[Rfam]
RNA sequence: CGCUGACGUGGACGGGUGUGACCGGUGGCGCGUCAGGGAAAUCCGGAUACCACGGGGGUAGGUUGAGAGAAUCCGGCGCGGUGGCGAAGAUAGAGCCGCGAUCUAUACGUCUGUCGGAG
Number, nucleotide and partner (000 for none) at each position: 001c038002g000003c036004u035005g034006a033007c032008g031009u030010g029011g000012a000013c000014g000015g000016g000017u000018g000019u000020g000021a000022c000023c000024g000025g053026u052027g051028g050029c010030g009031c008032g007033u006034c005035a004036g003037g000038g001039a000040a000041a000042u000043c076044c075045g074046g073047a072048u071049a000050c028051c027052a026053c025054g000055g000056g000057g000058g000059u000060a104061g103062g102063u101064u000065g000066a000067g000068a000069g000070a000071a048072u047073c046074c045075g044076g043077c100078g099079c098080g097081g096082u095083g000084g000085c000086g000087a000088a000089g115090a114091u113092a112093g111094a110095g082096c081097c080098g079099c078100g077101a063102u062103c061104u060105a000106u000107a000108c000109g000110u094111c093112u092113g091114u090115c089116g000117g000118a000119g000
A member of the RNA family "Betaproteobacteria-1 RNA" from Burkholderia vietnamiensis, 119 nucleotides long. Rfam classes the family as a small RNA. Taxonomically the source falls in Burkholderia vietnamiensis (Bacteria, Pseudomonadati, Burkholderia, Burkholderia cepacia complex).